RNA sequence: AGCUCUGUGAUUAUAUGCCCGAUUUGGGCUAUAUACGCUAUUCUGAUUCAUAACAUGAGCAGAAAUCUGAGAAAUGAGAGCU
Numbered sequence: 001a002g003c004u005c006u007g008u009g010a011u012u013a014u015a016u017g018c019c020c021g022a023u024u025u026g027g028g029c030u031a032u033a034u035a036c037g038c039u040a041u042u043c044u045g046a047u048u049c050a051u052a053a054c055a056u057g058a059g060c061a062g063a064a065a066u067c068u069g070a071g072a073a074a075u076g077a078g079a080g081c082u
Base pairs, nucleotide, nucleotide: 001082002081003080004079005078
This 82-nucleotide RNA sequence from Hevea brasiliensis belongs to the Rfam family "Small nucleolar RNA U54". Pairs were carried over by alignment from the consensus structure, which was predicted with PFOLD. A search with the family's covariance model found it, with a score of 57 bits. U54 is a C/D box small nucleolar RNA, which acts as a methylation guide for 18S ribosomal RNA in plants. The literature on the family includes a 2003 paper in Nucleic Acids Res by Chen et al., "The high diversity of snoRNAs in plants: identification and comparative study of 120 snoRNA genes from Oryza sativa".